[Rfam]
RNA sequence: UUACUUACCUGGAAGAGGGAAUAUCAUGAACACAGAAGUGGUUUUCCCAGGGUGAGGCUCAUCCAUUGUACCACAGGUAUACUUACCCCUGCAAUUUUCUGAAAUGUGGGGGAAACCACUGCAUAAUUUGUGGUUGGGUCAUGGGAUUGCAUUUCAAUGUCCC
Numbered sequence: 001u002u003a004c005u006u007a008c009c010u011g012g013a014a015g016a017g018g019g020a021a022u023a024u025c026a027u028g029a030a031c032a033c034a035g036a037a038g039u040g041g042u043u044u045u046c047c048c049a050g051g052g053u054g055a056g057g058c059u060c061a062u063c064c065a066u067u068g069u070a071c072c073a074c075a076g077g078u079a080u081a082c083u084u085a086c087c088c089c090u091g092c093a094a095u096u097u098u099c100u101g102a103a104a105u106g107u108g109g110g111g112g113a114a115a116c117c118a119c120u121g122c123a124u125a126a127u128u129u130g131u132g133g134u135u136g137g138g139u140c141a142u143g144g145g146a147u148u149g150c151a152u153u154u155c156a157a158u159g160u161c162c163c
Base pairs, nucleotide, nucleotide: 012122014120015119017047018046019045020044021043023042024041025040026039027038049090050089051088052087054086056083057082062079063077064076095113096112097111099109100108145163149160150159151158152157

The record is a 163-nucleotide RNA from Platysternon megacephalum, which matches "U1 spliceosomal RNA" in Rfam. It scores 75 bits against the family's covariance model. The literature on the family includes a 1994 paper in Nature by Oubridge et al., "Crystal structure at 1.92 A resolution of the RNA-binding domain of the U1A spliceosomal protein complexed with an RNA hairpin". U1 is a small nuclear RNA (snRNA) component of the spliceosome (involved in pre-mRNA splicing). Its 5' end forms complementary base pairs with the 5' splice junction, thus defining the 5' donor site of an intron. There are significant differences in sequence and secondary structure between metazoan and yeast U1 snRNAs, the latter being much longer (568 nucleotides as compared to 164 nucleotides in human). Nevertheless, secondary structure predictions suggest that all U1 snRNAs share a 'common core' consisting of helices I, II, the proximal region of III, and IV. This family does not contain the larger yeast sequences. Pairs were carried over by alignment from the consensus structure, which is taken from published work. Clan: U1 clan. Taxonomically the source falls in Platysternon (Eukaryota, Opisthokonta, Craniata, Platysternidae).